[Rfam]
RNA sequence: GGAGAAGAUCGGUCUGUCGCAUUUGCCCUAGAGGCAGGUGAGGAACGUCCGAGCAACGCAGAGCUCCAUACUUCCUAACGGGAAGCCGUCCGUGAGGGCAGAGUAGUGUAACAGAAAAGAACCGCCACAGAGGAGUCAAUCCCUCGGGAGCGACCUCUGUCGGUAAGGGUGAAAAGGUGAGGUAAGAGCUCACCGCCAGCCCUGGCAACAGGCUGGGCCGUACACCUUAUGGGUUGCAAGAUCAUGUAAACCGACGUUAUGAGGGUUGCUCGCCCCAUGUCGGAGGGUAGAUCGCUAGAGCCAGGUGGAGACAUCUGGCCCAGAUAAAUGACAGACGCCUCGAGGCCUCGGCCUUGGGGUACAGAACUCGGCUUAUAGAUCCUCUCCCCCC
Numbered sequence: 001g002g003a004g005a006a007g008a009u010c011g012g013u014c015u016g017u018c019g020c021a022u023u024u025g026c027c028c029u030a031g032a033g034g035c036a037g038g039u040g041a042g043g044a045a046c047g048u049c050c051g052a053g054c055a056a057c058g059c060a061g062a063g064c065u066c067c068a069u070a071c072u073u074c075c076u077a078a079c080g081g082g083a084a085g086c087c088g089u090c091c092g093u094g095a096g097g098g099c100a101g102a103g104u105a106g107u108g109u110a111a112c113a114g115a116a117a118a119g120a121a122c123c124g125c126c127a128c129a130g131a132g133g134a135g136u137c138a139a140u141c142c143c144u145c146g147g148g149a150g151c152g153a154c155c156u157c158u159g160u161c162g163g164u165a166a167g168g169g170u171g172a173a174a175a176g177g178u179g180a181g182g183u184a185a186g187a188g189c190u191c192a193c194c195g196c197c198a199g200c201c202c203u204g205g206c207a208a209c210a211g212g213c214u215g216g217g218c219c220g221u222a223c224a225c226c227u228u229a230u231g232g233g234u235u236g237c238a239a240g241a242u243c244a245u246g247u248a249a250a251c252c253g254a255c256g257u258u259a260u261g262a263g264g265g266u267u268g269c270u271c272g273c274c275c276c277a278u279g280u281c282g283g284a285g286g287g288u289a290g291a292u293c294g295c296u297a298g299a300g301c302c303a304g305g306u307g308g309a310g311a312c313a314u315c316u317g318g319c320c321c322a323g324a325u326a327a328a329u330g331a332c333a334g335a336c337g338c339c340u341c342g343a344g345g346c347c348u349c350g351g352c353c354u355u356g357g358g359g360u361a362c363a364g365a366a367c368u369c370g371g372c373u374u375a376u377a378g379a380u381c382c383u384c385u386c387c388c389c390c391c
Stems, first nucleotide, its partner, number of pairs: 001387005007381004011376001012336007020040008045374001047372001049371005054236004061271004066232005071085005086101001088099004102227002106225005122168002124164003127160006176194006195218001196216005202211003240293004251283005263275004300319008
Rfam assigns this 391-nucleotide RNA from Porphyromonas sp. COT-239 OH1446 to the family "Bacterial RNase P class A". Rfam's curators write: Ribonuclease P (RNase P) is a ubiquitous endoribonuclease, found in archaea, bacteria and eukarya as well as chloroplasts and mitochondria. The source organism's lineage runs through Bacteria, Bacteroidota, Bacteroidia, Bacteroidales and Porphyromonas. Rfam links the family to the GO terms dimeric ribonuclease P complex, ribonuclease P activity and tRNA processing.